[Rfam]
RNA sequence: GGUAGUAACAGCGAAGCCGGGUGAGAAUCCCGGCCGCCGGAAGGCCAAGGUUUUCUUGGCAACGCGUCGUCGGCCAAGAGUUAGCCGGUCCUAAGGACCAUCCCGCAAGGGAUCGGUCCGAAAGGGAAACCGGUUAAUAUUCCGGUGCCUCCGGCCGUCCCCGCAAGGGGAUGCCCAGUCCUCUUGCCUCUAGAUAGGGGGAGCAGGGCCGUCGCCCUGUCUAACUCUCCGAGCGCGGGGGAGCGUCGUAAUGACGAGAACCCGUGCGAGGGAGGAAUGGCCCGCCGUUAGGCGGGUUCCCCUGACUCUAGGGGACAGUGAAAGGAGGGCUGGGCUAAAGGCCGGAGACCGUACCAAGAACCGACACUGGUGGCCUGGGUGAGAAGCCUAAGGCGUGU
Numbered sequence: 001g002g003u004a005g006u007a008a009c010a011g012c013g014a015a016g017c018c019g020g021g022u023g024a025g026a027a028u029c030c031c032g033g034c035c036g037c038c039g040g041a042a043g044g045c046c047a048a049g050g051u052u053u054u055c056u057u058g059g060c061a062a063c064g065c066g067u068c069g070u071c072g073g074c075c076a077a078g079a080g081u082u083a084g085c086c087g088g089u090c091c092u093a094a095g096g097a098c099c100a101u102c103c104c105g106c107a108a109g110g111g112a113u114c115g116g117u118c119c120g121a122a123a124g125g126g127a128a129a130c131c132g133g134u135u136a137a138u139a140u141u142c143c144g145g146u147g148c149c150u151c152c153g154g155c156c157g158u159c160c161c162c163g164c165a166a167g168g169g170g171a172u173g174c175c176c177a178g179u180c181c182u183c184u185u186g187c188c189u190c191u192a193g194a195u196a197g198g199g200g201g202a203g204c205a206g207g208g209c210c211g212u213c214g215c216c217c218u219g220u221c222u223a224a225c226u227c228u229c230c231g232a233g234c235g236c237g238g239g240g241g242a243g244c245g246u247c248g249u250a251a252u253g254a255c256g257a258g259a260a261c262c263c264g265u266g267c268g269a270g271g272g273a274g275g276a277a278u279g280g281c282c283c284g285c286c287g288u289u290a291g292g293c294g295g296g297u298u299c300c301c302c303u304g305a306c307u308c309u310a311g312g313g314g315a316c317a318g319u320g321a322a323a324g325g326a327g328g329g330c331u332g333g334g335c336u337a338a339a340g341g342c343c344g345g346a347g348a349c350c351g352u353a354c355c356a357a358g359a360a361c362c363g364a365c366a367c368u369g370g371u372g373g374c375c376u377g378g379g380u381g382a383g384a385a386g387c388c389u390a391a392g393g394c395g396u397g398u
Base pairs, nucleotide, nucleotide: 016034017033018032019031020030021029035395036394037393038392043375044374045373046372049355050354054079055078056077057076058075059074063072064071086351087350088349090125091124095119096118097117098116099115101112102111103110129146130145131144132143133142149347150346151345152344153343154342155341156340181327182326183325187314188313189312190311191310192309193308194307197303198302199301200300201299203220204219205218206217207216225274226273227272228271235265236264237263238262239261245255246254247253286291361370362369376390377389378388379387

Shown here is a 398-nucleotide part of an RNA from an uncultured Nitrososphaerota archaeon, a member of the family "Archaeal large subunit ribosomal RNA". The base pairs follow the family's consensus structure, which is taken from published work. Clan: LSU clan. Gene Ontology terms of the family: structural constituent of ribosome and ribosome.